[Rfam]
RNA sequence: GAGUCACAGUGAACAUUCAACGCUGUCGGUGAGUUUUCAAAUGGGAGAAACCAUCGAGUGUUGAGUGUACCCUGCUUCUC
Numbered sequence: 001g002a003g004u005c006a007c008a009g010u011g012a013a014c015a016u017u018c019a020a021c022g023c024u025g026u027c028g029g030u031g032a033g034u035u036u037u038c039a040a041a042u043g044g045g046a047g048a049a050a051c052c053a054u055c056g057a058g059u060g061u062u063g064a065g066u067g068u069a070c071c072c073u074g075c076u077u078c079u080c
Stems, first nucleotide, its partner, number of pairs: 001080003007074002014067009026057006033051004

Record summary
The family of this 80-nucleotide sequence from Silurus meridionalis is "mir-181 microRNA precursor family". Rfam links the family to the GO terms miRNA-mediated post-transcriptional gene silencing and RISC complex.